[Rfam]
RNA: Bacterial RNase P class B
Organism: Amedibacillus dolichus
RNA sequence: CAUUACAGACAGUCGCUGGCUAUAAAGCUAGAGGAAAGUCCAUGCUCGCACGAUCUGUGAUGAUCGUAGUGUUUGUGCAGAAUGAAUACAUAAGUUCUGGCAGCUGAUUGCUGACGGCUGAGGGAAGCCUAAGACUUCGGUUAUGGUGUACCUCUGUAAAAGUGCCACAGAAACGAGUCGUAUCGGAAACGAUACGAAUGGAACGGGUAAACCCCGCAAGCGAGAAACCCAAAUUUGGUAGGGGAAUCCACUAAAGUGAAACGAAACGGCGGUGGGACGUGCAUGCACGUAGAUAAAUGACUGUCACUCAUAUAUAUGAGCACAGAACAUGGCUUAUGUA
Numbered sequence: 001c002a003u004u005a006c007a008g009a010c011a012g013u014c015g016c017u018g019g020c021u022a023u024a025a026a027g028c029u030a031g032a033g034g035a036a037a038g039u040c041c042a043u044g045c046u047c048g049c050a051c052g053a054u055c056u057g058u059g060a061u062g063a064u065c066g067u068a069g070u071g072u073u074u075g076u077g078c079a080g081a082a083u084g085a086a087u088a089c090a091u092a093a094g095u096u097c098u099g100g101c102a103g104c105u106g107a108u109u110g111c112u113g114a115c116g117g118c119u120g121a122g123g124g125a126a127g128c129c130u131a132a133g134a135c136u137u138c139g140g141u142u143a144u145g146g147u148g149u150a151c152c153u154c155u156g157u158a159a160a161a162g163u164g165c166c167a168c169a170g171a172a173a174c175g176a177g178u179c180g181u182a183u184c185g186g187a188a189a190c191g192a193u194a195c196g197a198a199u200g201g202a203a204c205g206g207g208u209a210a211a212c213c214c215c216g217c218a219a220g221c222g223a224g225a226a227a228c229c230c231a232a233a234u235u236u237g238g239u240a241g242g243g244g245a246a247u248c249c250a251c252u253a254a255a256g257u258g259a260a261a262c263g264a265a266a267c268g269g270c271g272g273u274g275g276g277a278c279g280u281g282c283a284u285g286c287a288c289g290u291a292g293a294u295a296a297a298u299g300a301c302u303g304u305c306a307c308u309c310a311u312a313u314a315u316a317u318g319a320g321c322a323c324a325g326a327a328c329a330u331g332g333c334u335u336a337u338g339u340a
Stems, first nucleotide, its partner, number of pairs: 004340004008305007016031006036335003040332005045224005050067006073219005078099006100115001101113004116214002120154003127147003133142003162212002164208003178197008228243003247276006277290005307320005